[Rfam]
RNA sequence: GUUCCCGAGGAUGACAAUAUCCAUGCUAAUCCUGAUCUUGUGAUGAGAAAACGGUCUCUUGAUUGAGGGAACC
Numbered sequence: 001g002u003u004c005c006c007g008a009g010g011a012u013g014a015c016a017a018u019a020u021c022c023a024u025g026c027u028a029a030u031c032c033u034g035a036u037c038u039u040g041u042g043a044u045g046a047g048a049a050a051a052c053g054g055u056c057u058c059u060u061g062a063u064u065g066a067g068g069g070a071a072c073c
Base pairs, nucleotide, nucleotide: 001072002071003070004069005068
The family of this 73-nucleotide sequence from Ceratodon purpureus is "Small nucleolar RNA snoR53Y". Rfam links the family to the GO terms nucleolus and RNA processing. Pairs were carried over by alignment from the consensus structure, which was predicted with WAR. The family is grouped with related families in Rfam's "snoR53 clan". By type it is a C/D-box small nucleolar RNA.